[Rfam]
RNA sequence: AACUGAAUAGGUGAUGACGUUCGCCAUUAACCGAGUAAAAUCUAAUGACGUCUACUUUAUC
Numbered sequence: 001a002a003c004u005g006a007a008u009a010g011g012u013g014a015u016g017a018c019g020u021u022c023g024c025c026a027u028u029a030a031c032c033g034a035g036u037a038a039a040a041u042c043u044a045a046u047g048a049c050g051u052c053u054a055c056u057u058u059a060u061c
Stems, first nucleotide, its partner, number of pairs: 010025004016052006033042002
Dot-bracket structure: .........[[[[..((((((]]]].......((......))....)))))).........
Rfam assigns this 61-nucleotide sequence from Lactobacillus crispatus to the family "Fluoride riboswitch aptamer (crcB RNA motif)". A search with the family's covariance model found it, with a score of 46 bits. The organism belongs to Lactobacillus crispatus, within Bacteria.